Shown here is a 98-nucleotide RNA from Zizania palustris, a member of the family "Small nucleolar RNA R11/Z151". A search with the family's covariance model found it, with a score of 53 bits. Rfam links the family to the GO terms RNA processing and nucleolus.
[Rfam]
RNA sequence: UGGCUCGUGAUGAUUCAGGUCCGAACGGAUCUUUGCGCCUUUUGUGAGGCUGUUCCAACGCCGUUGAUCGCUUAAUGUUGUUACACACACUGAAGCCU
Numbered sequence: 001u002g003g004c005u006c007g008u009g010a011u012g013a014u015u016c017a018g019g020u021c022c023g024a025a026c027g028g029a030u031c032u033u034u035g036c037g038c039c040u041u042u043u044g045u046g047a048g049g050c051u052g053u054u055c056c057a058a059c060g061c062c063g064u065u066g067a068u069c070g071c072u073u074a075a076u077g078u079u080g081u082u083a084c085a086c087a088c089a090c091u092g093a094a095g096c097c098u
Base pairs, nucleotide, nucleotide: 002097003096004095005094